[Rfam]
RNA sequence: CGAGGUCCCGCGACGACUCAUGGCAGGGGUGGGGGAACCACUUCCGGGCCGCCCCCCGAUCUCAGAUCGGGGUGGUGGUCCUCGGGGUGAAGCCGGUGCGAACCGGCCGGGCGACCUUCCCGCCCGAACCCGACAGCUCACCUCGCAGGCGUCGGAGAGGUCCU
Numbered sequence: 001c002g003a004g005g006u007c008c009c010g011c012g013a014c015g016a017c018u019c020a021u022g023g024c025a026g027g028g029g030u031g032g033g034g035g036a037a038c039c040a041c042u043u044c045c046g047g048g049c050c051g052c053c054c055c056c057c058g059a060u061c062u063c064a065g066a067u068c069g070g071g072g073u074g075g076u077g078g079u080c081c082u083c084g085g086g087g088u089g090a091a092g093c094c095g096g097u098g099c100g101a102a103c104c105g106g107c108c109g110g111g112c113g114a115c116c117u118u119c120c121c122g123c124c125c126g127a128a129c130c131c132g133a134c135a136g137c138u139c140a141c142c143u144c145g146c147a148g149g150c151g152u153c154g155g156a157g158a159g160g161u162c163c164u
Stems, first nucleotide, its partner, number of pairs: 001148001006027002029146006039084001085131003093106004109125004
About this RNA
The record is a 164-nucleotide RNA from Kineococcus xinjiangensis, which matches "c-di-AMP riboswitch aptamer (ydaO/yuaA leader)" in Rfam. The match comes from Rfam's covariance-model search (57 bits). Its family is annotated with regulation of gene expression and cyclic-di-AMP binding in the Gene Ontology.